[Rfam]
RNA sequence: GGCCAGAUAGUAUGGUAGAAAGAAAGAUUCAUCUAUUUCUUUCUAUCAUACUAUCUAUUAUUGUUAGUGUAAUGUAUAAAGUUUUAAUGUAUAAAGAUACAAGUUUAAU
Dot-bracket structure: .....((((((((((((((((((((..........))))))))))))))))))))......................................................
Numbered sequence: 001g002g003c004c005a006g007a008u009a010g011u012a013u014g015g016u017a018g019a020a021a022g023a024a025a026g027a028u029u030c031a032u033c034u035a036u037u038u039c040u041u042u043c044u045a046u047c048a049u050a051c052u053a054u055c056u057a058u059u060a061u062u063g064u065u066a067g068u069g070u071a072a073u074g075u076a077u078a079a080a081g082u083u084u085u086a087a088u089g090u091a092u093a094a095a096g097a098u099a100c101a102a103g104u105u106u107a108a109u
Stems, first nucleotide, its partner, number of pairs: 006055020